Shown here is a 109-nucleotide RNA from Corynebacterium vitaeruminis, a member of the family "mraW RNA". By type it is a cis-regulatory element. It scores 51 bits against the family's covariance model. The family's consensus secondary structure is taken from published work.
[Rfam]
RNA sequence: AGCGGAGGUUGGCGUAAGAACUCCGUUCGGAGUGAGUGGGAUCUGGUGUACUUCCCCGAUAUCAGAUCCCUCCUCCCCGGACGGGGCUCUGUGUUUGCCCCGCAGCGCA
Numbered sequence: 001a002g003c004g005g006a007g008g009u010u011g012g013c014g015u016a017a018g019a020a021c022u023c024c025g026u027u028c029g030g031a032g033u034g035a036g037u038g039g040g041a042u043c044u045g046g047u048g049u050a051c052u053u054c055c056c057c058g059a060u061a062u063c064a065g066a067u068c069c070c071u072c073c074u075c076c077c078c079g080g081a082c083g084g085g086g087c088u089c090u091g092u093g094u095u096u097g098c099c100c101c102g103c104a105g106c107g108c109a
Base pairs, nucleotide, nucleotide: 011095012094013093014092015091016090018089019088021086022085023084024083025082026081027080028079029078030077032075034073038070039069040068041067042066043065044064045063046062047061048060049059